Rfam assigns this 62-nucleotide part of an RNA from Methylomirabilis oxygeniifera to the family "Bacterial large subunit ribosomal RNA". On this family, see Yusupov et al., Science 2001: "Crystal structure of the ribosome at 5.5 A resolution". Taxonomically the source falls in Methylomirabilis (SeqCode) (Bacteria, Bacteria candidate phyla, Methylomirabilota (SeqCode), Methylomirabilia (SeqCode)).

RNA sequence: AGUCGAAGGGCUAUGCUCGCCGCAAGGCGAGAAUGCCUGACGGCGUGCCUUUUGCUUAAUGA
Numbered sequence: 001a002g003u004c005g006a007a008g009g010g011c012u013a014u015g016c017u018c019g020c021c022g023c024a025a026g027g028c029g030a031g032a033a034u035g036c037c038u039g040a041c042g043g044c045g046u047g048c049c050u051u052u053u054g055c056u057u058a059a060u061g062a
Base pairs, nucleotide, nucleotide: 002044003043004042005041008038009037010036011035048061050059